[Rfam]
RNA sequence: CCCCCACCCAUGUGUGCAGGACCCCAAGGAUCACCAUUAAAGUUAGCACAGAUCUUUAGAAAAGUUAUUACAUGAGUGUGUGACUUGACUUUUCUAUAGAUAUGUGCCAAAUUUAAUGGUGAUCCUUUGGGGUCCUACACACAUGGGUGGGGG
Numbered sequence: 001c002c003c004c005c006a007c008c009c010a011u012g013u014g015u016g017c018a019g020g021a022c023c024c025c026a027a028g029g030a031u032c033a034c035c036a037u038u039a040a041a042g043u044u045a046g047c048a049c050a051g052a053u054c055u056u057u058a059g060a061a062a063a064g065u066u067a068u069u070a071c072a073u074g075a076g077u078g079u080g081u082g083a084c085u086u087g088a089c090u091u092u093u094c095u096a097u098a099g100a101u102a103u104g105u106g107c108c109a110a111a112u113u114u115a116a117u118g119g120u121g122a123u124c125c126u127u128u129g130g131g132g133u134c135c136u137a138c139a140c141a142c143a144u145g146g147g148u149g150g151g152g153g
Stems, first nucleotide, its partner, number of pairs: 002152012015139002018136011029124003033120009043110002046107005052101004057096011069080004